[Rfam]
The record is a 154-nucleotide RNA from Camellia sinensis, which matches "small nucleolar RNA snoR134" in Rfam. Rfam links the family to the GO terms RNA processing and nucleolus.
RNA sequence: UUGCACGAUCUCUCCCGGGCGUCUCUGAAUCAAUUUCAAUGACGAUGAACGCCCCAAAGCUCGUGCUAGAAUGCUCGUCGUUCCAGUGUUGCAGUUUAGCCUUUGUACCUUUCUCUUCCGUGGCUCAAUUUGUGUCAUUUUGGCGACUACAUCC
Numbered sequence: 001u002u003g004c005a006c007g008a009u010c011u012c013u014c015c016c017g018g019g020c021g022u023c024u025c026u027g028a029a030u031c032a033a034u035u036u037c038a039a040u041g042a043c044g045a046u047g048a049a050c051g052c053c054c055c056a057a058a059g060c061u062c063g064u065g066c067u068a069g070a071a072u073g074c075u076c077g078u079c080g081u082u083c084c085a086g087u088g089u090u091g092c093a094g095u096u097u098a099g100c101c102u103u104u105g106u107a108c109c110u111u112u113c114u115c116u117u118c119c120g121u122g123g124c125u126c127a128a129u130u131u132g133u134g135u136c137a138u139u140u141u142g143g144c145g146a147c148u149a150c151a152u153c154c
Base pairs, nucleotide, nucleotide: 003066004065005064006063007062008061011059017054018053019052020051021050022048023047024045025044077147078146079145080144081143083142087137088136090134091133092132093131094130098125099124100123